About this RNA:
The record is a 116-nucleotide RNA from Luteimonas salinisoli, which matches "Xanthomonadaceae sRNA asX1" in Rfam. Pairs were carried over by alignment from the consensus structure, which was predicted with CMfinder. The family's RNA type in Rfam is small RNA.
[Rfam]
RNA sequence: CACCCGGGAAGGCAAGCGCCAAAGGGGGGCGCGGCCGGAGAUUGGAACAGGGCUGGCCGAGCGCGACCUGGGGAAGCGAUGGGGCCGGAUGUCGGGGGACAUCCGGCCCCGUUUUU
Numbered sequence: 001c002a003c004c005c006g007g008g009a010a011g012g013c014a015a016g017c018g019c020c021a022a023a024g025g026g027g028g029g030c031g032c033g034g035c036c037g038g039a040g041a042u043u044g045g046a047a048c049a050g051g052g053c054u055g056g057c058c059g060a061g062c063g064c065g066a067c068c069u070g071g072g073g074a075a076g077c078g079a080u081g082g083g084g085c086c087g088g089a090u091g092u093c094g095g096g097g098g099a100c101a102u103c104c105g106g107c108c109c110c111g112u113u114u115u116u
Stems, first nucleotide, its partner, number of pairs: 003072006011064001012062002016032005033058006043050001080111014